[Rfam]
RNA sequence: GUUCCAUAGACAUUUUGGCAUUCUGUCCACCUCCAUCAGUACUGUUAUAUAUAUGUAUGUAUAUAUAUAUAUAAAGAUCUAGAAACAUACCUAGAUGGUGACAUAUUUGGAGGUGGCCAGUAUGCCAAACAAGCUCUGUGAA
Dot-bracket structure: ..............((((((...((.((((((((..........................................................................)))))))).))...))))))..............
Numbered sequence: 001g002u003u004c005c006a007u008a009g010a011c012a013u014u015u016u017g018g019c020a021u022u023c024u025g026u027c028c029a030c031c032u033c034c035a036u037c038a039g040u041a042c043u044g045u046u047a048u049a050u051a052u053a054u055g056u057a058u059g060u061a062u063a064u065a066u067a068u069a070u071a072u073a074a075a076g077a078u079c080u081a082g083a084a085a086c087a088u089a090c091c092u093a094g095a096u097g098g099u100g101a102c103a104u105a106u107u108u109g110g111a112g113g114u115g116g117c118c119a120g121u122a123u124g125c126c127a128a129a130c131a132a133g134c135u136c137u138g139u140g141a142a
Stems, first nucleotide, its partner, number of pairs: 015128006024119002027116008